[Rfam]
RNA sequence: GUUGCAAGUGACGAUAAAACAGACAGGGACAUCAGCAGCUCGUUAGAUCUCUAACGAGGAUGAUGACAAAGUCUAGAUGGGAAUCUCUCUGAUGCAAA
Number, nucleotide and partner (000 for none) at each position: 001g000002u097003u096004g095005c094006a093007a000008g000009u000010g000011a000012c000013g000014a000015u000016a000017a000018a000019a000020c000021a000022g000023a000024c000025a000026g000027g000028g000029a000030c000031a000032u000033c000034a000035g000036c000037a000038g000039c000040u000041c000042g000043u000044u000045a000046g000047a000048u000049c000050u000051c000052u000053a000054a000055c000056g000057a000058g000059g000060a000061u000062g000063a000064u000065g000066a000067c000068a000069a000070a000071g000072u000073c000074u000075a000076g000077a000078u000079g000080g000081g000082a000083a000084u000085c000086u000087c000088u000089c000090u000091g000092a000093u006094g005095c004096a003097a002098a000
About this RNA
The record is a 98-nucleotide RNA from Asparagus officinalis, which matches "Small nucleolar RNA R44/J54/Z268 family" in Rfam. It scores 88 bits against the family's covariance model. The family's consensus secondary structure was predicted with PFOLD. Rfam links the family to the GO terms RNA processing and nucleolus. Taxonomically the source falls in Asparagus (Eukaryota, Euphyllophyta, Petrosaviidae, Asparagales). The family has 29 seed sequences and 1,168 matches in Rfam 15.1.